This 85-nucleotide RNA belongs to the Rfam family "Insect-specific Flavivirus 3' UTR cis-acting replication element (CRE)". It is one of the family's seed sequences. Pairs were carried over by alignment from the consensus structure, which was predicted with LocARNA. Flavi_ISFV_CRE is a Insect specific Flavivirus family.
RNA sequence: CCCCCGAAACGUGAUUUAUAUGAUGACAAGAAUCAGAUGGAAGAUCCCCACCGUUAGGGGAUCCAUCCAGCAUUCUUGGAAUCAU
Numbered sequence: 001c002c003c004c005c006g007a008a009a010c011g012u013g014a015u016u017u018a019u020a021u022g023a024u025g026a027c028a029a030g031a032a033u034c035a036g037a038u039g040g041a042a043g044a045u046c047c048c049c050a051c052c053g054u055u056a057g058g059g060g061a062u063c064c065a066u067c068c069a070g071c072a073u074u075c076u077u078g079g080a081a082u083c084a085u
Stems, first nucleotide, its partner, number of pairs: 020085003024081001027078001029076005039067002043063007